[Rfam]
RNA sequence: AGCCUCAUUCUACUGAAAAUGGGCACUUGUUCAUGGUGUCCAUAAAACUGGUAAUGCGGCAACAUUGAGAACACAGGUUUUGCUUCCAUCACUGUAAUUUUAUUGCAGUGGUGACAAU
Numbered sequence: 001a002g003c004c005u006c007a008u009u010c011u012a013c014u015g016a017a018a019a020u021g022g023g024c025a026c027u028u029g030u031u032c033a034u035g036g037u038g039u040c041c042a043u044a045a046a047a048c049u050g051g052u053a054a055u056g057c058g059g060c061a062a063c064a065u066u067g068a069g070a071a072c073a074c075a076g077g078u079u080u081u082g083c084u085u086c087c088a089u090c091a092c093u094g095u096a097a098u099u100u101u102a103u104u105g106c107a108g109u110g111g112u113g114a115c116a117a118u
Base pairs, nucleotide, nucleotide: 002060003059004058006056007055008054020042021041022040023039024038025037026036087113088112089111090110091109092108
Dot-bracket structure: .(((.(((...........(((((((.........)))))))...........))).)))..........................((((((...............)))))).....
Notes
A member of the RNA family "Small nucleolar RNA SNORA1" from Moschus moschiferus, 118 nucleotides long. Its family is annotated with RNA processing and nucleolus in the Gene Ontology. The family's RNA type in Rfam is H/ACA-box small nucleolar RNA. The match comes from Rfam's covariance-model search (99 bits). Taxonomically the source falls in Moschus (Eukaryota, Metazoa, Chordata, Mammalia). ACA1 is a member of the H/ACA class of snoRNA that guide the sites of modification of uridines to pseudouridines.